[Rfam]
RNA sequence: GGCCAGUUUCUUCGGGCGGAGCUCGACGCCAACACAAGAAAUAGUCGACUUCAUCGACGACAACCGCGAGGAGUUCGGGUCGAGCCCAUCUGCACCGUCCUGCGAUCAGCAGGGUGUCGGUGGCUCCG
Dot-bracket structure: ..............((((........)))).............................................((((......((.((.((((..................)))).)).))).)))
The family of this 128-nucleotide sequence from Mycobacterium dioxanotrophicus is "ALIL pseudoknot".
The family's consensus secondary structure is taken from published work.
Its family is annotated with positive regulation of translational frameshifting in the Gene Ontology.